[Rfam]
RNA sequence: GAAUGCGUGGUGUCCACGGGACGUCUGAACAUCGAUCGCUGAUAACCUAUAGGGCGUACGGCAGAUCUGUUUAGAAUCGUUCUUCCACAUACACAUUCAUUCGUCGGUUCCCGAUGCACGGUACGAUCGCUCGGUCGAGCCUCAUUAACAUACCCAUAAGCAUAUAGUCCAGCUAGGAUUUAGUGUCAUUUGGUUUAAGACGCAUUCAGUUGCAGGCACUGUCGUAGCAGUUUGCCUUAUUUUUUA
Numbered sequence: 001g002a003a004u005g006c007g008u009g010g011u012g013u014c015c016a017c018g019g020g021a022c023g024u025c026u027g028a029a030c031a032u033c034g035a036u037c038g039c040u041g042a043u044a045a046c047c048u049a050u051a052g053g054g055c056g057u058a059c060g061g062c063a064g065a066u067c068u069g070u071u072u073a074g075a076a077u078c079g080u081u082c083u084u085c086c087a088c089a090u091a092c093a094c095a096u097u098c099a100u101u102c103g104u105c106g107g108u109u110c111c112c113g114a115u116g117c118a119c120g121g122u123a124c125g126a127u128c129g130c131u132c133g134g135u136c137g138a139g140c141c142u143c144a145u146u147a148a149c150a151u152a153c154c155c156a157u158a159a160g161c162a163u164a165u166a167g168u169c170c171a172g173c174u175a176g177g178a179u180u181u182a183g184u185g186u187c188a189u190u191u192g193g194u195u196u197a198a199g200a201c202g203c204a205u206u207c208a209g210u211u212g213c214a215g216g217c218a219c220u221g222u223c224g225u226a227g228c229a230g231u232u233u234g235c236c237u238u239a240u241u242u243u244u245u246a
Stems, first nucleotide, its partner, number of pairs: 001207008025074003029070003034067004038062004215236003218231005
The family of this 246-nucleotide sequence from Dimorphilus gyrociliatus is "Arthropod 7SK RNA". Taxonomically the source falls in Dimorphilus (Eukaryota, Eumetazoa, Annelida, Dinophilidae). The family's RNA type in Rfam is non-coding RNA gene. The literature on the family includes a 2008 paper in Mol Biol Evol by Gruber et al., "Arthropod 7SK RNA". The family's consensus secondary structure is taken from published work.